[Rfam]
RNA sequence: AGACCAGUUAAAGGACUACAGCAGAAGCACUCACAUUAUGGCUCCUGUCAGAUUCCUAUGAAUCUGAAUUAUGCA
Numbered sequence: 001a002g003a004c005c006a007g008u009u010a011a012a013g014g015a016c017u018a019c020a021g022c023a024g025a026a027g028c029a030c031u032c033a034c035a036u037u038a039u040g041g042c043u044c045c046u047g048u049c050a051g052a053u054u055c056c057u058a059u060g061a062a063u064c065u066g067a068a069u070u071a072u073g074c075a
Base pairs, nucleotide, nucleotide: 013045014044015043016041017040021074022073023072025070026069027039029037049066050065051064052063053062054061055060
A member of the RNA family "Mammalian CPEB3 ribozyme" from Microcaecilia unicolor, 75 nucleotides long.
NCBI's taxonomy places the organism under Eukaryota, Opisthokonta, Metazoa, Euteleostomi, Microcaecilia.
Rfam's curators write: The mammalian CPEB3 ribozyme is a self cleaving RNA located in the second intron of the CPEB3 gene which belongs to a family of genes regulating messenger RNA polyadenylation.